Notes: Shown here is a 46-nucleotide RNA sequence from Rhodococcus sp. UNC363MFTsu5.1, a member of the family "L31-Actinobacteria ribosomal protein leader". By type it is a cis-regulatory leader. Taxonomically the source falls in Rhodococcus (Bacteria, Bacillati, Actinomycetota, Mycobacteriales). The family's consensus secondary structure is taken from published work.
RNA sequence: CCGGUUCCGGUUCACGGCUUCGAUUGGCGAAGGCGACCCGGCGACC
Numbered sequence: 001c002c003g004g005u006u007c008c009g010g011u012u013c014a015c016g017g018c019u020u021c022g023a024u025u026g027g028c029g030a031a032g033g034c035g036a037c038c039c040g041g042c043g044a045c046c
Base pairs, nucleotide, nucleotide: 003046004045005044007041008040009039010038015035016034018032019031020030021029022028